[Rfam]
The family of this 48-nucleotide RNA from Streptomyces sp. SID8111 is "raiA-hairpin RNA". The family's RNA type in Rfam is small RNA. Pairs were carried over by alignment from the consensus structure, which is taken from published work. Taxonomically the source falls in Streptomyces (Bacteria, Bacillati, Kitasatosporales, Streptomycetaceae). The match comes from Rfam's covariance-model search (70 bits).
RNA sequence: CACCGAGUCCGAGGUUCCGGGGGUCACCGGAGCCGGGUGCAAAAGGGA
Numbered sequence: 001c002a003c004c005g006a007g008u009c010c011g012a013g014g015u016u017c018c019g020g021g022g023g024u025c026a027c028c029g030g031a032g033c034c035g036g037g038u039g040c041a042a043a044a045g046g047g048a
Stems, first nucleotide, its partner, number of pairs: 013034008